[Rfam]
A member of the RNA family "SAM riboswitch aptamer (S box leader)" from Microlunatus endophyticus, 130 nucleotides long.
RNA sequence: AGCUCAUCAAGAGGGGGCGAGGGACCGGCCCGCUGACCCCCCGGCAACCGGCUGUUCAGAUCAAGCAAUGUUCUGAACAGACAAGGUGCCAACUCCGACCCGGACGAAAGUCGUCCGAGACAGAUGAUGA
Dot-bracket structure: ...(((((....(((((...(((..[[[)))......)))))((((.(((.(((((((((...........))))))))).)..))))))...(]]].(.((((((.....)))))).)..))))))...
The SAM riboswitch is found upstream of a number of genes which code for proteins involved in methionine or cysteine biosynthesis in Gram-positive bacteria.